[Rfam]
RNA sequence: UGCUUCUCGUGAGCACCUAUCUGUCUAAUAGUGACAGUGCAAGGAUUCGCAUGAGAAGCAGAGUGAAGUCACAGUUAAACAGACAGCUUUCUAGGUGGAAGUUGUCCAUGUCUGAUGUGAGACAGUU
Numbered sequence: 001u002g003c004u005u006c007u008c009g010u011g012a013g014c015a016c017c018u019a020u021c022u023g024u025c026u027a028a029u030a031g032u033g034a035c036a037g038u039g040c041a042a043g044g045a046u047u048c049g050c051a052u053g054a055g056a057a058g059c060a061g062a063g064u065g066a067a068g069u070c071a072c073a074g075u076u077a078a079a080c081a082g083a084c085a086g087c088u089u090u091c092u093a094g095g096u097g098g099a100a101g102u103u104g105u106c107c108a109u110g111u112c113u114g115a116u117g118u119g120a121g122a123c124a125g126u127u
Stems, first nucleotide, its partner, number of pairs: 003058006013050002016044002021037005069120005087098002
Rfam assigns this 127-nucleotide RNA from Xiphophorus maculatus to the family "Small nucleolar RNA SNORA75".
A search with the family's covariance model found it, with a score of 82 bits.
The family's RNA type in Rfam is H/ACA-box small nucleolar RNA.
The base pairs follow the family's consensus structure, which was predicted with PFOLD.
About the family: U23 belongs to the H/ACA class of snoRNAs. snoRNAs bind a number of proteins (including dyskerin, Gar1p and Nop10p in the case of the H/ACA class) to form snoRNP complexes. This class are thought to guide the sites of modification of uridines to pseudouridines by forming direct base pairing interactions with substrate RNAs.
The source organism's lineage runs through Eukaryota, Teleostei, Neoteleostei, Eurypterygia and Xiphophorus.
A reference for the family is Ganot et al. (1997), "The family of box ACA small nucleolar RNAs is defined by an evolutionarily conserved secondary structure and ubiquitous sequence elements essential for RNA accumulation", Genes Dev.